[Rfam]
RNA sequence: UGCAUGAUACUAUUAACUUGUAGUUAUUUAAUAACUACAAGUCUUUUAUAUUCAUGAACAUAAUACUCCUGGAUGACGUCUUAACCCGACGUCAUCCUCUUUUUU
Number, nucleotide and partner (000 for none) at each position: 001u000002g000003c056004a055005u054006g053007a052008u000009a000010c000011u050012a049013u048014u000015a046016a045017c000018u000019u039020g038021u037022a036023g035024u034025u033026a032027u000028u000029u000030a000031a000032u026033a025034a024035c023036u022037a021038c020039a019040a000041g000042u000043c000044u000045u016046u015047u000048a013049u012050a011051u000052u007053c006054a005055u004056g003057a000058a000059c000060a000061u000062a000063a000064u000065a000066c000067u000068c000069c000070u000071g097072g096073a095074u094075g093076a092077c091078g090079u000080c000081u000082u000083a000084a000085c000086c000087c000088g000089a000090c078091g077092u076093c075094a074095u073096c072097c071098u000099c000100u000101u000102u000103u000104u000105u000

Staphylococcus sRNA71 small RNA: a 105-nucleotide RNA sequence from Staphylococcus sp. HMSC078E07.
For this family Rfam cites "Analysis of the small RNA transcriptional response in multidrug-resistant Staphylococcus aureus after antimicrobial exposure" (Howden et al., Antimicrob Agents Chemother, 2013).
The organism belongs to Staphylococcus, within Bacteria.
sRNA71 is a Bacterial small RNA discovered by RNA-seq analysis of the multiresistant Staphylococcus aureus strain ST239 grown in the presence of antibiotics and found throughout the Staphylococcus genus. It is thought to be a trans-encoded small RNA expressed in diverse conditions and media. The 5' position is uncertain, this record adds 12 bases to the initial sRNA71 sequence to include additional conserved nucleotides.
Its family is annotated with mRNA binding in the Gene Ontology.